tRNA: a 72-nucleotide RNA sequence from Chryseobacterium hagamense. The match comes from Rfam's covariance-model search (48 bits). Gene Ontology term of the family: triplet codon-amino acid adaptor activity. The family's RNA type in Rfam is transfer RNA.
RNA sequence: CUGGAAAGAUAACGGUGGUUGUUUACCCGCCUUGGACGCGGGAGGUCGCAGGUUCGAACCCUGCUUUCCAGA
Numbered sequence: 001c002u003g004g005a006a007a008g009a010u011a012a013c014g015g016u017g018g019u020u021g022u023u024u025a026c027c028c029g030c031c032u033u034g035g036a037c038g039c040g041g042g043a044g045g046u047c048g049c050a051g052g053u054u055c056g057a058a059c060c061c062u063g064c065u066u067u068c069c070a071g072a
Stems, first nucleotide, its partner, number of pairs: 001071007011023003026042005048064005